[Rfam]
RNA sequence: AGGGGGGAAGCCGAAAAACCUUUAAUAGAGUAAGCA
Numbered sequence: 001a002g003g004g005g006g007g008a009a010g011c012c013g014a015a016a017a018a019c020c021u022u023u024a025a026u027a028g029a030g031u032a033a034g035c036a
Stems, first nucleotide, its partner, number of pairs: 002021003010035002
DUF805b RNA: a 36-nucleotide RNA from Aquimarina agarilytica.
By type it is a cis-regulatory element.
NCBI's taxonomy places the organism under Bacteria, Flavobacteriales, Flavobacteriaceae, Aquimarina, Aquimarina agarilytica.